[Rfam]
RNA sequence: GGCCGUGGGGCCGCUAAGGGGAGGAAGCUCCGCCCCCGGGCCCGGGCCCGCCGCCCCGAGAGGGGGCCGGCCGAGAGGCCGGGGACCGGCCACAGAAACGACACGUCCGUCGGCGGAUGGCGAUGACGCGGCUGAGGCCCGCCGUGGGCGGGCCGAGAAGGGCCCCGGCGACGGGGCCCGAGCUAACCCGCAGAGGACGCCGGCGGGAUCGGUGAAACGGGCCGCCCGGCGGGGGGCGAGGCCGAAUGAGCCCGAUGAUACGAGGGUGAUGCCCCCGAUGAGUUCCCGGGCCGGAGGGGGAUGGUAGGCCGCUGAGGUGAAUGCCGCCGUCUAAGGCUACAGAAGGCGGGCUAUAGCC
Numbered sequence: 001g002g003c004c005g006u007g008g009g010g011c012c013g014c015u016a017a018g019g020g021g022a023g024g025a026a027g028c029u030c031c032g033c034c035c036c037c038g039g040g041c042c043c044g045g046g047c048c049c050g051c052c053g054c055c056c057c058g059a060g061a062g063g064g065g066g067c068c069g070g071c072c073g074a075g076a077g078g079c080c081g082g083g084g085a086c087c088g089g090c091c092a093c094a095g096a097a098a099c100g101a102c103a104c105g106u107c108c109g110u111c112g113g114c115g116g117a118u119g120g121c122g123a124u125g126a127c128g129c130g131g132c133u134g135a136g137g138c139c140c141g142c143c144g145u146g147g148g149c150g151g152g153c154c155g156a157g158a159a160g161g162g163c164c165c166c167g168g169c170g171a172c173g174g175g176g177c178c179c180g181a182g183c184u185a186a187c188c189c190g191c192a193g194a195g196g197a198c199g200c201c202g203g204c205g206g207g208a209u210c211g212g213u214g215a216a217a218c219g220g221g222c223c224g225c226c227c228g229g230c231g232g233g234g235g236g237c238g239a240g241g242c243c244g245a246a247u248g249a250g251c252c253c254g255a256u257g258a259u260a261c262g263a264g265g266g267u268g269a270u271g272c273c274c275c276c277g278a279u280g281a282g283u284u285c286c287c288g289g290g291c292c293g294g295a296g297g298g299g300g301a302u303g304g305u306a307g308g309c310c311g312c313u314g315a316g317g318u319g320a321a322u323g324c325c326g327c328c329g330u331c332u333a334a335g336g337c338u339a340c341a342g343a344a345g346g347c348g349g350g351c352u353a354u355a356g357c358c
Stems, first nucleotide, its partner, number of pairs: 001358003005354004009328003013324002028350001030349005035236003040267004048232005053067005068081005082227002087224004104211002107206008127180002240310004251299003
The record is a 358-nucleotide RNA sequence from Methanopyrus kandleri, which matches "Archaeal RNase P" in Rfam. From the family's description: Ribonuclease P (RNase P) is a ubiquitous endoribonuclease, found in archaea, bacteria and eukarya as well as chloroplasts and mitochondria. Its family is annotated with ribonuclease P activity, multimeric ribonuclease P complex and tRNA processing in the Gene Ontology. On this family, see Frank and Pace, Annu Rev Biochem 1998: "Ribonuclease P: unity and diversity in a tRNA processing ribozyme". The family is grouped with related families in Rfam's "RNaseP clan".